[Rfam]
RNA sequence: GCCUGUGAUGGGCAUGCAUAUAAUCUUUGAGACCUGAGAAUUUGUCUUUCUUUGAUGACAAAUUACAAGCAUUUUUUCUGAGGCC
Numbered sequence: 001g002c003c004u005g006u007g008a009u010g011g012g013c014a015u016g017c018a019u020a021u022a023a024u025c026u027u028u029g030a031g032a033c034c035u036g037a038g039a040a041u042u043u044g045u046c047u048u049u050c051u052u053u054g055a056u057g058a059c060a061a062a063u064u065a066c067a068a069g070c071a072u073u074u075u076u077u078c079u080g081a082g083g084c085c
Stems, first nucleotide, its partner, number of pairs: 001084003037053001038050002
Dot-bracket structure: (((.................................(((.........))..)............................))).